[Rfam]
The record is a 95-nucleotide sequence, which matches "c-di-GMP-I riboswitch aptamer" in Rfam. The match comes from Rfam's covariance-model search (60 bits).
RNA sequence: UCCCGAUAAAGGCAAAACGUUUCCCGAAAGGGCGUGACGCAAAACUAACCGGCCUAAGUAUCUCACCUGAGAUAUACGGUAGCGGGGUCACCGAA
Numbered sequence: 001u002c003c004c005g006a007u008a009a010a011g012g013c014a015a016a017a018c019g020u021u022u023c024c025c026g027a028a029a030g031g032g033c034g035u036g037a038c039g040c041a042a043a044a045c046u047a048a049c050c051g052g053c054c055u056a057a058g059u060a061u062c063u064c065a066c067c068u069g070a071g072a073u074a075u076a077c078g079g080u081a082g083c084g085g086g087g088u089c090a091c092c093g094a095a
Base pairs, nucleotide, nucleotide: 012040013039017035018034019033020032024031025030044088045087046086049085050084051083052080053079054078059074060073061072062071063070064069